RNA: Selenocysteine transfer RNA
RNA sequence: GGAGGCGUUCGGGUAGCUGGUGCGCCCCGCGGUCUUCAAAACCGUAGUGGCCGAGGACCUCGGUCAGGCGGGUUCGAUUCCCGUCCGCCUCC
Numbered sequence: 001g002g003a004g005g006c007g008u009u010c011g012g013g014u015a016g017c018u019g020g021u022g023c024g025c026c027c028c029g030c031g032g033u034c035u036u037c038a039a040a041a042c043c044g045u046a047g048u049g050g051c052c053g054a055g056g057a058c059c060u061c062g063g064u065c066a067g068g069c070g071g072g073u074u075c076g077a078u079u080c081c082c083g084u085c086c087g088c089c090u091c092c
Base pairs, nucleotide, nucleotide: 001092002091003090004089005088006087007086012027013026016023017022029045030044031043032042033041048066049065050064051063052062069083070082071081072080